[Rfam]
Rfam assigns this 75-nucleotide sequence from Phyllotreta striolata to the family "mir-971 microRNA precursor family". Lineage of the source: Eukaryota > Altocrustacea > Allotriocarida > Chrysomeloidea > Phyllotreta. Gene Ontology terms of the family: miRNA-mediated post-transcriptional gene silencing and RISC complex. Pairs were carried over by alignment from the consensus structure, which was predicted with RNAalifold. The family has 6 seed sequences and 118 matches in Rfam 15.1.

RNA sequence: UAGUUGGGUCACUCUAAGUUUGAACACCAAGCCGAGUUUAUUCGUUUGGUGUUCUACCUUACAGUGAGCGGACUG
Dot-bracket structure: ......(.(((((.(((.......((((((((...........)))))))).......))).))))).)......
Numbered sequence: 001u002a003g004u005u006g007g008g009u010c011a012c013u014c015u016a017a018g019u020u021u022g023a024a025c026a027c028c029a030a031g032c033c034g035a036g037u038u039u040a041u042u043c044g045u046u047u048g049g050u051g052u053u054c055u056a057c058c059u060u061a062c063a064g065u066g067a068g069c070g071g072a073c074u075g
Stems, first nucleotide, its partner, number of pairs: 007069001009067005015061003025051008